[Rfam]
RNA sequence: CUCUUAUCAAGAGAGGCGGAGGGAAUAGGCCCAAAGAUGCCCGGCAACCUGCAAGAAAUUGCAAAGGUGCUAAAUCCUACAGACUUAUGUCUGAAAGAUAAGAG
Numbered sequence: 001c002u003c004u005u006a007u008c009a010a011g012a013g014a015g016g017c018g019g020a021g022g023g024a025a026u027a028g029g030c031c032c033a034a035a036g037a038u039g040c041c042c043g044g045c046a047a048c049c050u051g052c053a054a055g056a057a058a059u060u061g062c063a064a065a066g067g068u069g070c071u072a073a074a075u076c077c078u079a080c081a082g083a084c085u086u087a088u089g090u091c092u093g094a095a096a097g098a099u100a101a102g103a104g
Stems, first nucleotide, its partner, number of pairs: 001104008013042001015041003021032003026079004043071004048067002050063004075096001080093005
SAM riboswitch aptamer (S box leader): a 104-nucleotide RNA sequence from Ureibacillus terrenus. The match comes from Rfam's covariance-model search (94 bits). Pairs were carried over by alignment from the consensus structure, which is taken from published work.